The record is a 110-nucleotide RNA sequence from Triticum turgidum, which matches "MIR1120/MIR1122 microRNA precursor family" in Rfam.
RNA sequence: AUACUCUCUCCGUCCCAUAAUAUAAGAGCGUUUUUGACGUAGACCAUAAUAUAAGAGCGCUUUUGACACUACGUCAAAAACGCUCUUAUAUUAUGGGACGGAGGGAGUAG
Numbered sequence: 001a002u003a004c005u006c007u008c009u010c011c012g013u014c015c016c017a018u019a020a021u022a023u024a025a026g027a028g029c030g031u032u033u034u035u036g037a038c039g040u041a042g043a044c045c046a047u048a049a050u051a052u053a054a055g056a057g058c059g060c061u062u063u064u065g066a067c068a069c070u071a072c073g074u075c076a077a078a079a080a081c082g083c084u085c086u087u088a089u090a091u092u093a094u095g096g097g098a099c100g101g102a103g104g105g106a107g108u109a110g
Stems, first nucleotide, its partner, number of pairs: 003108003007104005013098005019092023